[Rfam]
Nucleotides: 372
Base pairs, nucleotide, nucleotide: 001368002367003366004365005364006363007362008361009360011359013313014312015311016310017309018308019307021040022039024037025036026035027034028033045355046354047353049352050351051350052349053348054214055213056212057211061248062247063246064245066210067209068208069207070206071085072084073083074082075081086100087098088097089096090095101205102204106203107202108199109198110197123144124143125140126139127138128137129136130135152170153169154168155167156166157165172194173192174191175190176189177188178187179186180185218270219269220268221267228261229260230259231258232257233256240252241251242250243249277296278295279294280293281292282291283290284289
Number, partner (000 for none) and nucleotide at each position: 001368c002367g003366a004365a005364g006363a007362a008361g009360g010000a011359c012000a013313g014312a015311c016310g017309g018308u019307c020000g021040c022039c023000g024037g025036u026035u027034u028033c029000g030000c031000a032000a033028g034027a035026a036025a037024c038000g039022g040021g041000a042000g043000g044000a045355a046354a047353g048000u049352c050351c051350g052349g053348g054214c055213u056212c057211c058000g059000c060000a061248g062247a063246g064245c065000a066210g067209g068208a069207u070206g071085g072084u073083u074082c075081c076000u077000a078000a079000c080000g081075g082074g083073a084072a085071c086100c087098g088097g089096g090095g091000g092000u093000g094000a095090c096089c097088c098087c099000a100086g101205g102204g103000a104000c105000a106203g107202u108199g109198c110197c111000a112000c113000a114000g115000a116000g117000a118000g119000a120000a121000g122000a123144c124143c125140g126139c127138c128137u129136g130135c131000u132000u133000u134000g135130g136129c137128a138127g139126g140125u141000a142000a143124g144123g145000g146000u147000g148000a149000a150000a151000g152170g153169g154168u155167g156166a157165g158000g159000u160000a161000a162000g163000a164000g165157c166156u167155c168154a169153c170152c171000a172194g173192c174191u175190c176189u177188g178187g179186u180185g181000g182000u183000g184000a185180c186179a187178u188177c189176a190175g191174a192173g193000g194172c195000u196000c197110g198109g199108u200000a201000a202107a203106c204102c205101c206070c207069a208068u209067c210066u211057g212056g213055a214054g215000c216000a217000a218270g219269g220268c221267c222000a223000a224000a225000u226000a227000g228261g229260g230259a231258a232257g233256c234000g235000u236000u237000u238000g239000a240252g241251a242250g243249c244000g245064g246063c247062u248061c249243g250242c251241u252240c253000g254000a255000a256233g257232c258231u259230u260229u261228c262000g263000g264000g265000u266000u267221g268220g269219c270218u271000g272000c273000u274000u275000g276000a277296g278295g279294c280293c281292g282291u283290c284289g285000g286000c287000a288000a289284c290283g291282g292281c293280g294279g295278u296277c297000c298000u299000a300000g301000a302000g303000g304000a305000a306000u307019g308018a309017u310016c311015g312014u313013u314000g315000c316000c317000c318000g319000u320000c321000u322000c323000c324000g325000g326000g327000u328000a329000a330000c331000c332000g333000g334000a335000u336000u337000c338000g339000g340000g341000u342000a343000c344000a345000g346000a347000a348053c349052c350051c351050g352049g353047c354046u355045u356000a357000c358000g359011g360009c361008c362007u363006u364005c365004u366003u367002c368001g369000a370000c371000c372000a